About this RNA:
A member of the RNA family "mir-1421 microRNA precursor family" from Ornithorhynchus anatinus, 74 nucleotides long. The source organism's lineage runs through Eukaryota, Gnathostomata, Amniota, Monotremata and Ornithorhynchus. Gene Ontology terms of the family: miRNA-mediated post-transcriptional gene silencing and RISC complex. The family has 53 seed sequences and 110 matches in Rfam 15.1. Pairs were carried over by alignment from the consensus structure, which was predicted with RNAalifold.
RNA sequence: CAGUGUGAGGAGGACACAUGUGGUGCAGUGUGCUAGUGGAAUAUGCUGCAUCAUGCGUAGCCUCCCCAAACUGU
Numbered sequence: 001c002a003g004u005g006u007g008a009g010g011a012g013g014a015c016a017c018a019u020g021u022g023g024u025g026c027a028g029u030g031u032g033c034u035a036g037u038g039g040a041a042u043a044u045g046c047u048g049c050a051u052c053a054u055g056c057g058u059a060g061c062c063u064c065c066c067c068a069a070a071c072u073g074u
Base pairs, nucleotide, nucleotide: 003071004070006068007067009065010064011063012062013061016058017057019055020054021053023051024050025049026048027047